This 155-nucleotide RNA sequence from Populus trichocarpa belongs to the Rfam family "MIR2912 microRNA precursor family". Pairs were carried over by alignment from the consensus structure, which was predicted with RNAalifold. Rfam links the family to the GO terms miRNA-mediated post-transcriptional gene silencing and RISC complex. It scores 120 bits against the family's covariance model. Rfam 15.1 lists 15,051 matches to the family in 15 species.
[Rfam]
RNA sequence: UCUAGAACCCGAGAUAUAGACUGAACACUGAAUAGUAUCUAGGCUGCAGGACAGAUUCAGACUUCUCUUUCGAUGCUAAGAUUUGGACUCCAAAAUGGCAAAAAUGAGUCUUGGACUCUUAUAAAUGUUUUAUGCCUAUGUCUUAGCUUUCUAUC
Numbered sequence: 001u002c003u004a005g006a007a008c009c010c011g012a013g014a015u016a017u018a019g020a021c022u023g024a025a026c027a028c029u030g031a032a033u034a035g036u037a038u039c040u041a042g043g044c045u046g047c048a049g050g051a052c053a054g055a056u057u058c059a060g061a062c063u064u065c066u067c068u069u070u071c072g073a074u075g076c077u078a079a080g081a082u083u084u085g086g087a088c089u090c091c092a093a094a095a096u097g098g099c100a101a102a103a104a105u106g107a108g109u110c111u112u113g114g115a116c117u118c119u120u121a122u123a124a125a126u127g128u129u130u131u132a133u134g135c136c137u138a139u140g141u142c143u144u145a146g147c148u149u150u151c152u153a154u155c
Stems, first nucleotide, its partner, number of pairs: 003153005008146001011144009022132004027128002035122003041119003045115001048112005054105001056103002060099001062098002068092001072088001074086001